[Rfam]
RNA: Nitrogen stress-induced RNA 1
RNA sequence: UGGUAGAUGCACAUUGGAUUUCAUCCCUAGCUUAAUUGCUAGGGAUUUUUUUG
Number, nucleotide and partner (000 for none) at each position: 001u000002g000003g012004u011005a000006g000007a000008u000009g000010c000011a004012c003013a000014u000015u000016g000017g000018a000019u000020u000021u000022c000023a000024u045025c044026c043027c042028u041029a040030g039031c038032u000033u000034a000035a000036u000037u000038g031039c030040u029041a028042g027043g026044g025045a024046u000047u000048u000049u000050u000051u000052u000053g000